[Rfam]
RNA sequence: AGCGGUGAUGAUGUAAUUUGCGUCGUAUUUCAAGUUGGGAACGCUAGCCUGGUGUUCAUUAACCAACUUGUAAUAGAUGAUGAAAAUUCCAAAACGACUGAGCU
Dot-bracket structure: (((.................((((......(((....(((((((.......)))))......))...)))........))))...................)))
Small nucleolar RNA SNORD16: a 104-nucleotide RNA sequence from Brachionus calyciflorus. A search with the family's covariance model found it, with a score of 46 bits. Pairs were carried over by alignment from the consensus structure, which was predicted with PFOLD. The literature on the family includes a 1993 paper in EMBO J by Fragapane et al., "A novel small nucleolar RNA (U16) is encoded inside a ribosomal protein intron and originates by processing of the pre-mRNA". Gene Ontology terms of the family: nucleolus and RNA processing. The source organism's lineage runs through Eukaryota, Rotifera, Monogononta, Pseudotrocha and Brachionus.